[Rfam]
RNA sequence: UUAGAAAUAACGUGUUGUGAUAGUUGUCUUAUUCUCCUGCUUUUAAUACCGAGAAUAAGUCCAUUGUUGCACCAUGUUAUUUCCAC
Numbered sequence: 001u002u003a004g005a006a007a008u009a010a011c012g013u014g015u016u017g018u019g020a021u022a023g024u025u026g027u028c029u030u031a032u033u034c035u036c037c038u039g040c041u042u043u044u045a046a047u048a049c050c051g052a053g054a055a056u057a058a059g060u061c062c063a064u065u066g067u068u069g070c071a072c073c074a075u076g077u078u079a080u081u082u083c084c085a086c
Stems, first nucleotide, its partner, number of pairs: 004083010016071009026061001028059009

mir-4841 microRNA precursor family: an 86-nucleotide RNA sequence from Saccoglossus kowalevskii. Rfam's curators put it in the seed alignment.